RNA sequence: GUUGCGCUGUACCCUUGCUGGGAUCUGCAGUAUCUCCAAAUGACCCUCUGCCGCAGGGUGGGACAGCGCAAC
Numbered sequence: 001g002u003u004g005c006g007c008u009g010u011a012c013c014c015u016u017g018c019u020g021g022g023a024u025c026u027g028c029a030g031u032a033u034c035u036c037c038a039a040a041u042g043a044c045c046c047u048c049u050g051c052c053g054c055a056g057g058g059u060g061g062g063a064c065a066g067c068g069c070a071a072c
Stems, first nucleotide, its partner, number of pairs: 001072006009064002012061002020036005043059005

Shown here is a 72-nucleotide RNA sequence from Ooceraea biroi, a member of the family "bZIP non canonical Hac1/Xbp1 intron".
From the family's description: bZIP intron RNA is a non-canonical intron that was first reported in HAC1 gene in yeast and XBP1 gene in Metazoa.
On this family, see Hooks and Griffiths-Jones, RNA Biol 2011: "Conserved RNA structures in the non-canonical Hac1/Xbp1 intron".
It is annotated as a small RNA.
NCBI's taxonomy places the organism under Eukaryota, Dicondylia, Neoptera, Aculeata, Ooceraea.
It scores 41 bits against the family's covariance model.